Shown here is a 77-nucleotide RNA from Shigella flexneri, a member of the family "SymR antitoxin".
Pairs were carried over by alignment from the consensus structure, which is taken from published work.
The source organism's lineage runs through Bacteria, Pseudomonadati, Gammaproteobacteria, Enterobacterales and Shigella flexneri.
Its family is annotated with mRNA binding in the Gene Ontology.
The family's RNA type in Rfam is antitoxin RNA.
RNA sequence: AGUCAUGAUUACUAUUCUCUAUAAAUAGUGAUUGUGAUUAGCGGUGCGAGUGUGUUGGCGCACAUCCGCACCGUGCU
Number, nucleotide and partner (000 for none) at each position: 001a039002g038003u037004c036005a035006u034007g033008a032009u000010u000011a029012c028013u027014a026015u025016u024017c000018u000019c000020u000021a000022u000023a000024a016025a015026u014027a013028g012029u011030g000031a000032u008033u007034g006035u005036g004037a003038u002039u001040a000041g074042c073043g072044g000045u070046g069047c068048g067049a000050g065051u064052g063053u062054g061055u060056u000057g000058g000059c000060g055061c054062a053063c052064a051065u050066c000067c048068g047069c046070a045071c000072c043073g042074u041075g000076c000077u000